The family of this 48-nucleotide RNA sequence from Dichocarpum fargesii is "Plastid-rpl16 group II-D1 intron". Gene Ontology term of the family: Group II intron splicing. Pairs were carried over by alignment from the consensus structure, which was predicted with LocARNA. About the family: Plastid-rpl16 is a non-coding RNA (ncRNA) recognised in plastids. It was recognised in and intronic region of a ribosome rpl16 gene. NCBI's taxonomy places the organism under Eukaryota, Viridiplantae, Streptophyta, Euphyllophyta, Dichocarpum.
RNA sequence: AAGAGCACCGAGUCAAUAAAGAUUGAGGAAAUUGAUUCAGGAACAAAU
Number, nucleotide and partner (000 for none) at each position: 001a000002a000003g000004a000005g000006c000007a000008c040009c000010g038011a037012g036013u035014c034015a033016a032017u031018a000019a000020a000021g000022a000023u000024u000025g000026a000027g000028g000029a000030a000031a017032u016033u015034g014035a013036u012037u011038c010039a000040g008041g000042a000043a000044c000045a000046a000047a000048u000